[Rfam]
RNA sequence: UAGAUUGAAAUUGUGAUAGUUAUUUGCUAGAAUACGGAUGUACGUUUCGUACUAUGGCGAUAAAUGGUUUUUCAUAAUAGGUGUUUUGGACCCGAAGGCGGAAUUCGGCGCCUCCACCGUUAGUAUGGGGGCGAAUUAGUAUCGACAGGCAUUAAAGGUCUAACUUUUGCUCGGUUGAGUGAUCCCGUGAUUCACAACACUUUUUAUAAGUGCAAACGAUAAUUUCGAAGCUGAGCCUGCAAGUCUUGCAGUAGCUGCUUAGUUCUCUAAGUAGUCAGCGCGGCUUGGGGCAGCCGGGCAACAGAAUGCCCCACU
Numbered sequence: 001u002a003g004a005u006u007g008a009a010a011u012u013g014u015g016a017u018a019g020u021u022a023u024u025u026g027c028u029a030g031a032a033u034a035c036g037g038a039u040g041u042a043c044g045u046u047u048c049g050u051a052c053u054a055u056g057g058c059g060a061u062a063a064a065u066g067g068u069u070u071u072u073c074a075u076a077a078u079a080g081g082u083g084u085u086u087u088g089g090a091c092c093c094g095a096a097g098g099c100g101g102a103a104u105u106c107g108g109c110g111c112c113u114c115c116a117c118c119g120u121u122a123g124u125a126u127g128g129g130g131g132c133g134a135a136u137u138a139g140u141a142u143c144g145a146c147a148g149g150c151a152u153u154a155a156a157g158g159u160c161u162a163a164c165u166u167u168u169g170c171u172c173g174g175u176u177g178a179g180u181g182a183u184c185c186c187g188u189g190a191u192u193c194a195c196a197a198c199a200c201u202u203u204u205u206a207u208a209a210g211u212g213c214a215a216a217c218g219a220u221a222a223u224u225u226c227g228a229a230g231c232u233g234a235g236c237c238u239g240c241a242a243g244u245c246u247u248g249c250a251g252u253a254g255c256u257g258c259u260u261a262g263u264u265c266u267c268u269a270a271g272u273a274g275u276c277a278g279c280g281c282g283g284c285u286u287g288g289g290g291c292a293g294c295c296g297g298g299c300a301a302c303a304g305a306a307u308g309c310c311c312c313a314c315u
Stems, first nucleotide, its partner, number of pairs: 040052005056171005067164003073158001082151003086148003092108005109133007172187003181195001281296004287312006
Dot-bracket structure: .......................................(((((...)))))...(((((......(((...(........(((.(((...(((((.......)))))(((((((...........)))))))............))))))......)...)))..)))))(((......[...))).......].....................................................................................[[[[..((((((]]]]..........))))))...